[Rfam]
RNA sequence: AUAGGCAAAGAUAAAAACGCAAUGUACAUUGUCUAAUGUGCUAGAACUGGUAGGUAGCCCAGUCGUCAUAGUGUUUCUAUGGUAAGUAACCUUCCCCUCCGGGUUGUCCAUUCUUUGUUAAUUAGUU
Numbered sequence: 001a002u003a004g005g006c007a008a009a010g011a012u013a014a015a016a017a018c019g020c021a022a023u024g025u026a027c028a029u030u031g032u033c034u035a036a037u038g039u040g041c042u043a044g045a046a047c048u049g050g051u052a053g054g055u056a057g058c059c060c061a062g063u064c065g066u067c068a069u070a071g072u073g074u075u076u077c078u079a080u081g082g083u084a085a086g087u088a089a090c091c092u093u094c095c096c097c098u099c100c101g102g103g104u105u106g107u108c109c110a111u112u113c114u115u116u117g118u119u120a121a122u123u124a125g126u127u
Base pairs, nucleotide, nucleotide: 004119005118006117007116008115009114010113011112046063047062048061049060050059065083066082067081068080069079070078094103095102096101
The family of this 127-nucleotide RNA sequence is "azaaromatic riboswitch aptamer (yjdF RNA)".
It scores 73 bits against the family's covariance model.